RNA sequence: AAUUUCAUAGUGUACGUUUCUCGUAUAUGUGUAGGAAUUGGCCUGCACGUCUCUACCCGAUCACCGGAAUGAUUGGACUACGGGAUGAUAACAAUUCGUU
Numbered sequence: 001a002a003u004u005u006c007a008u009a010g011u012g013u014a015c016g017u018u019u020c021u022c023g024u025a026u027a028u029g030u031g032u033a034g035g036a037a038u039u040g041g042c043c044u045g046c047a048c049g050u051c052u053c054u055a056c057c058c059g060a061u062c063a064c065c066g067g068a069a070u071g072a073u074u075g076g077a078c079u080a081c082g083g084g085a086u087g088a089u090a091a092c093a094a095u096u097c098g099u100u
Base pairs, nucleotide, nucleotide: 019085020084021083022082023081024080025079029048030047031046032045033044034043035042057076058075059074060073061072062071063070
RNA: Purine riboswitch aptamer
Organism: Paenibacillus uliginis